[Rfam]
RNA: Glycine riboswitch aptamer
RNA sequence: AUGAUGACUGAAGGAGAGCUGCCGCAGGGCACACCGAAGGAGUAAAUCUCUCAGGUUAAAAGACUUCAGUCGGACG
Numbered sequence: 001a002u003g004a005u006g007a008c009u010g011a012a013g014g015a016g017a018g019c020u021g022c023c024g025c026a027g028g029g030c031a032c033a034c035c036g037a038a039g040g041a042g043u044a045a046a047u048c049u050c051u052c053a054g055g056u057u058a059a060a061a062g063a064c065u066u067c068a069g070u071c072g073g074a075c076g
Base pairs, nucleotide, nucleotide: 006071007070008069009068010067011066012065013064020031021030022029023028033056034055035054036052037051040050041049042048